[Rfam]
RNA sequence: UGUUUAUCUCAGGGCAGGGUGAAAAUCCCUACCGGCGGUAACAUAAAACAUCGACUGAUGAUUUUAUGCAGCCCGCGAGCGCUCUGUUUAUCUUUAUUGUUUUUUUAGAUUAUCUGAAACUUAAGCAAUAAGGGUUAAAACAGGGGUCAGCAGAUCCAGUGUGAUUCUGGAGCCGACGGUGAUAGUCCGGAUGGGAGAGAAUAACA
Dot-bracket structure: ..((..((((......(((.......))).[[((((((................................[[))))..((.....................................................................))...(((((.......)))))]])).(((.....]]))).......))))..))..
RNA: FMN riboswitch aptamer (RFN element)